The family of this 67-nucleotide RNA from Chaetops frenatus is "mir-30 microRNA precursor family".
Its family is annotated with RISC complex and gene silencing by miRNA in the Gene Ontology.
From the family's description: This family consists of the mammalian microRNA (miRNA) precursor mir-30a. Animal miRNAs are transcribed as ~70nt precursors and subsequently processed by the Dicer enzyme to give a ~22nt product.
The family's consensus secondary structure was predicted with PFOLD.
RNA sequence: UUAGUUCCUGUAAACAUCCUACACUCAGCUAUGACUGGGGGCUGGGGUGGAUGUUUACUUCUACUGA
Numbered sequence: 001u002u003a004g005u006u007c008c009u010g011u012a013a014a015c016a017u018c019c020u021a022c023a024c025u026c027a028g029c030u031a032u033g034a035c036u037g038g039g040g041g042c043u044g045g046g047g048u049g050g051a052u053g054u055u056u057a058c059u060u061c062u063a064c065u066g067a
Stems, first nucleotide, its partner, number of pairs: 002066004010058010021048002024046007